[Rfam]
Annotation:
XIST RNA A repeat: a 40-nucleotide RNA from Oryctolagus cuniculus. The base pairs follow the family's consensus structure, which was predicted with CMfinder. On this family, see Duszczyk et al., RNA 2011: "The Xist RNA A-repeat comprises a novel AUCG tetraloop fold and a platform for multimerization".

RNA sequence: UGGCCCAUCGGGGCAACGGAUACCUGUUUUUGUGGUUUUU
Number, nucleotide and partner (000 for none) at each position: 001u000002g000003g014004c013005c012006c011007a000008u000009c000010g000011g006012g005013g004014c003015a000016a000017c026018g025019g024020a000021u000022a000023c000024c019025u018026g017027u000028u000029u000030u000031u000032g000033u000034g000035g000036u000037u000038u000039u000040u000